The family of this 179-nucleotide RNA from Pseudomonas syringae is "6S / SsrS RNA". E. coli 6S RNA was the first non coding RNA to be sequenced, but its function was unknown until recently. It consists of 184 nucleotides that fold into an extended hairpin structure with a large single-stranded internal bulge. The 6S RNA specifically associates with RNA polymerase holoenzyme containing the sigma70 specificity factor. Taxonomically the source falls in Pseudomonas syringae pv. syringae (Bacteria, Pseudomonadati, Pseudomonadota, Pseudomonas). By type it is a non-coding RNA gene.

[Rfam]
RNA sequence: UGCUCCCUGGAGUGCUUGCCAGUCGGUCAUGUCCCUGAGCCGAUACGCACAACCACGGGGGUUGCACGUUGGGGUUGGUGUGCAUGUCCGCUCGACGGAAAGCCUUAAAACCUCCUGCAAUCUCCACCUUGAACUUUCGGGUUCAAGGGCUAAACCGACAGCGGUUCGUCGGGGAGUCC
Numbered sequence: 001u002g003c004u005c006c007c008u009g010g011a012g013u014g015c016u017u018g019c020c021a022g023u024c025g026g027u028c029a030u031g032u033c034c035c036u037g038a039g040c041c042g043a044u045a046c047g048c049a050c051a052a053c054c055a056c057g058g059g060g061g062u063u064g065c066a067c068g069u070u071g072g073g074g075u076u077g078g079u080g081u082g083c084a085u086g087u088c089c090g091c092u093c094g095a096c097g098g099a100a101a102g103c104c105u106u107a108a109a110a111c112c113u114c115c116u117g118c119a120a121u122c123u124c125c126a127c128c129u130u131g132a133a134c135u136u137u138c139g140g141g142u143u144c145a146a147g148g149g150c151u152a153a154a155c156c157g158a159c160a161g162c163g164g165u166u167c168g169u170c171g172g173g174g175a176g177u178c179c
Base pairs, nucleotide, nucleotide: 002177003176004175005174006173007172008171009170010169012167014165015164017163018162019161031150032149033148034147036145037144038143039142040141041140057125058124059123061121062120063119064118065117066116071114072113073112074111075110076109082103083102087099088098089097090096